[Rfam]
RNA sequence: GCCGGGCUGUUGUAAAACUCCAAGCCAAUGGAGUUUCCCGAUUACGGGUUGACAGCAAGCGGUAUCAUGCUGGAAAGCAGGGAUGCCGCGGAAACAGCCGGGAUACCGGCAAA
Numbered sequence: 001g002c003c004g005g006g007c008u009g010u011u012g013u014a015a016a017a018c019u020c021c022a023a024g025c026c027a028a029u030g031g032a033g034u035u036u037c038c039c040g041a042u043u044a045c046g047g048g049u050u051g052a053c054a055g056c057a058a059g060c061g062g063u064a065u066c067a068u069g070c071u072g073g074a075a076a077g078c079a080g081g082g083a084u085g086c087c088g089c090g091g092a093a094a095c096a097g098c099c100g101g102g103a104u105a106c107c108g109g110c111a112a113a
Stems, first nucleotide, its partner, number of pairs: 037048003059089008068079003097110005
A member of the RNA family "Mahella-1 RNA", 113 nucleotides long. By type it is a small RNA. Pairs were carried over by alignment from the consensus structure, which is taken from published work.